[Rfam]
RNA: chrB-a RNA
Organism: Paramesorhizobium deserti
RNA sequence: AUUAUGGGGUAGCGAUCGCCCCACGAGGCCACGGCUGAAGAAUCGCGUCCUUUGAACCCGAGCCAAACGGAGGGACGCGUUAUG
Number, nucleotide and partner (000 for none) at each position: 001a000002u000003u000004a000005u023006g022007g021008g020009g019010u018011a000012g000013c000014g000015a000016u000017c000018g010019c009020c008021c007022c006023a005024c000025g000026a000027g000028g000029c000030c000031a000032c000033g000034g000035c000036u000037g000038a000039a000040g000041a000042a000043u000044c000045g078046c077047g076048u075049c074050c073051u072052u071053u000054g000055a000056a000057c000058c000059c000060g000061a000062g000063c000064c000065a000066a000067a000068c000069g000070g000071a052072g051073g050074g049075a048076c047077g046078c045079g000080u000081u000082a000083u000084g000